Shown here is a 76-nucleotide sequence from Myotis davidii, a member of the family "mir-9223 microRNA precursor family". The family has 9 seed sequences and 14,641 matches in Rfam 15.1. The organism belongs to Myotis, within Eukaryota.
[Rfam]
RNA sequence: GAUGGUUCUCAGGUGACACAUCCUGGAAUCGGGCUCCCUCCUCUCUGGUUCCUGGGUGUAUCACGUGACAACCGCC
Dot-bracket structure: ..(.(((.(((.((((..(((((.(((((((((..........))))))))).)))))..)))).))).))).)..